[Rfam]
RNA sequence: UAACCCUUUCCGUGAGGAAAGGCUGAGCGGUCAGAAGUCAGCAGACGCUAUAUUUCCUGAGUAGAGGACGCUCGAAAAGGGAGGGGU
Numbered sequence: 001u002a003a004c005c006c007u008u009u010c011c012g013u014g015a016g017g018a019a020a021g022g023c024u025g026a027g028c029g030g031u032c033a034g035a036a037g038u039c040a041g042c043a044g045a046c047g048c049u050a051u052a053u054u055u056c057c058u059g060a061g062u063a064g065a066g067g068a069c070g071c072u073c074g075a076a077a078a079g080g081g082a083g084g085g086g087u
Stems, first nucleotide, its partner, number of pairs: 001025002005022007037046003047087003056080003059073003

Description
This 87-nucleotide RNA from Paenactinomyces guangxiensis belongs to the Rfam family "Group II catalytic intron D1-D4-1". Rfam links the family to the GO term Group II intron splicing.